[Rfam]
RNA sequence: AUGUUUACCUGGCAGGGGAGUUACCAUGAUCACGAAGGUGGUUUUCCCAGGGUGAGGCUGACCCAUUGCACUCCGGAUGUGAUGACCCCAGUGAUUUCCCCAAAUGUGGGAAUCUUGACUGUUCAAUUUGUGGUAGUGGGGGACGCAUUCAGCUCUCCUCUG
Numbered sequence: 001a002u003g004u005u006u007a008c009c010u011g012g013c014a015g016g017g018g019a020g021u022u023a024c025c026a027u028g029a030u031c032a033c034g035a036a037g038g039u040g041g042u043u044u045u046c047c048c049a050g051g052g053u054g055a056g057g058c059u060g061a062c063c064c065a066u067u068g069c070a071c072u073c074c075g076g077a078u079g080u081g082a083u084g085a086c087c088c089c090a091g092u093g094a095u096u097u098c099c100c101c102a103a104a105u106g107u108g109g110g111a112a113u114c115u116u117g118a119c120u121g122u123u124c125a126a127u128u129u130g131u132g133g134u135a136g137u138g139g140g141g142g143a144c145g146c147a148u149u150c151a152g153c154u155c156u157c158c159u160c161u162g
Base pairs, nucleotide, nucleotide: 012122013121014120015119016048017047018046019045020044023042024041025040026039027038050089051088052087054086056083058081061078063076064075092117093116094115096112097111099109100108138161139160140159141158142157143156145153146152